[Rfam]
RNA sequence: AUGGACGUGAUGAUUAUUUCCCCAGAUGAUCGAAUUUGAUUAUACUGUGCGCUAUUUAAACAUUCUUCUAAAUUUUUAGGAGAAUCCAAGCCAGAAAUCUGAUCCAU
Number, nucleotide and partner (000 for none) at each position: 001a107002u106003g105004g104005a103006c000007g000008u000009g000010a000011u000012g000013a000014u000015u000016a000017u000018u000019u000020c000021c000022c000023c000024a000025g000026a000027u000028g000029a000030u000031c000032g000033a000034a000035u000036u000037u000038g000039a000040u000041u000042a000043u000044a000045c000046u000047g000048u000049g000050c000051g000052c000053u000054a000055u000056u000057u000058a000059a000060a000061c000062a000063u000064u000065c000066u000067u000068c000069u000070a000071a000072a000073u000074u000075u000076u000077u000078a000079g000080g000081a000082g000083a000084a000085u000086c000087c000088a000089a000090g000091c000092c000093a000094g000095a000096a000097a000098u000099c000100u000101g000102a000103u005104c004105c003106a002107u001
The record is a 107-nucleotide RNA sequence from Lactuca saligna, which matches "Small nucleolar RNA Z103" in Rfam. The literature on the family includes a 2003 paper in Nucleic Acids Res by Chen et al., "The high diversity of snoRNAs in plants: identification and comparative study of 120 snoRNA genes from Oryza sativa". Its family is annotated with nucleolus and RNA processing in the Gene Ontology. A search with the family's covariance model found it, with a score of 95 bits. Rfam classes the family as a C/D-box small nucleolar RNA.